Description: This 412-nucleotide sequence from Allobosea sp. RAC05 belongs to the Rfam family "Alphaproteobacteria transfer-messenger RNA". Rfam links the family to the GO term RNA catabolic process. The source organism's lineage runs through Bacteria, Pseudomonadati, Alphaproteobacteria, Hyphomicrobiales and Allobosea.
RNA sequence: GCUCUUUCCCCCGCCCUCCGCAGCCCCUAUAUUGACCUUGCCGAUCGCAAGACCGGCUAUGGCGAUAAACGAGCGUCGGAAUAAGCUUUUCGGACCCGGGGGCGGUACCCGGCGCCUCCACCACAGCCCUGCGGCGCGAGCCAUGGGGCGGCCUGCGGGAUCUUGGACCGCGGGCUUGCCAGGCCACCGAGUGGCAGGGUUGCGGCGGGGGCGAAAUAGGAUCGACGAGAGUGUAAAGGCCGUUCUUUUGCCCGGUAUGGUUCCGCCGUUAUAGGGCUAACGCAUAGUUGCCAACGACAACAAUGCUCGGGUCGCUGUCGCCGCGUAAGCGGUGCUGGUUCCCAAACCUAAGUCCUUCCGUUUAGCGACGUAAGGCGGGGCCCGGAGGCGCCUGGCAACAGAAGCCUCCACU
Numbered sequence: 001g002c003u004c005u006u007u008c009c010c011c012c013g014c015c016c017u018c019c020g021c022a023g024c025c026c027c028u029a030u031a032u033u034g035a036c037c038u039u040g041c042c043g044a045u046c047g048c049a050a051g052a053c054c055g056g057c058u059a060u061g062g063c064g065a066u067a068a069a070c071g072a073g074c075g076u077c078g079g080a081a082u083a084a085g086c087u088u089u090u091c092g093g094a095c096c097c098g099g100g101g102g103c104g105g106u107a108c109c110c111g112g113c114g115c116c117u118c119c120a121c122c123a124c125a126g127c128c129c130u131g132c133g134g135c136g137c138g139a140g141c142c143a144u145g146g147g148g149c150g151g152c153c154u155g156c157g158g159g160a161u162c163u164u165g166g167a168c169c170g171c172g173g174g175c176u177u178g179c180c181a182g183g184c185c186a187c188c189g190a191g192u193g194g195c196a197g198g199g200u201u202g203c204g205g206c207g208g209g210g211g212c213g214a215a216a217u218a219g220g221a222u223c224g225a226c227g228a229g230a231g232u233g234u235a236a237a238g239g240c241c242g243u244u245c246u247u248u249u250g251c252c253c254g255g256u257a258u259g260g261u262u263c264c265g266c267c268g269u270u271a272u273a274g275g276g277c278u279a280a281c282g283c284a285u286a287g288u289u290g291c292c293a294a295c296g297a298c299a300a301c302a303a304u305g306c307u308c309g310g311g312u313c314g315c316u317g318u319c320g321c322c323g324c325g326u327a328a329g330c331g332g333u334g335c336u337g338g339u340u341c342c343c344a345a346a347c348c349u350a351a352g353u354c355c356u357u358c359c360g361u362u363u364a365g366c367g368a369c370g371u372a373a374g375g376c377g378g379g380g381c382c383c384g385g386a387g388g389c390g391c392c393u394g395g396c397a398a399c400a401g402a403a404g405c406c407u408c409c410a411c412u
Stems, first nucleotide, its partner, number of pairs: 040057004061252005071245005077239001086231003090228003096112005113213007253268004258279003262276003378393004384409006
Overview:
Rfam's curators write: Bacterial tmRNA, also known as 10Sa RNA or SsrA, is named for its dual tRNA and mRNA-like properties. The family's RNA type in Rfam is non-coding RNA gene.